A member of the RNA family "mir-31 microRNA precursor family" from Phyllotreta striolata, 78 nucleotides long.
RNA sequence: AAAUUUUGAUAAGGCAAGAUGUCGGCAUAGCUGAUUAUAUUUUCUCGGCUGUGUCCCAUCAAGCCAACUUAAAUUUUC
Numbered sequence: 001a002a003a004u005u006u007u008g009a010u011a012a013g014g015c016a017a018g019a020u021g022u023c024g025g026c027a028u029a030g031c032u033g034a035u036u037a038u039a040u041u042u043u044c045u046c047g048g049c050u051g052u053g054u055c056c057c058a059u060c061a062a063g064c065c066a067a068c069u070u071a072a073a074u075u076u077u078c
Stems, first nucleotide, its partner, number of pairs: 005073005013065003018060004024055008
The organism belongs to Phyllotreta, within Eukaryota. Gene Ontology terms of the family: RISC complex and gene silencing by miRNA. The family's consensus secondary structure was predicted with RNAalifold.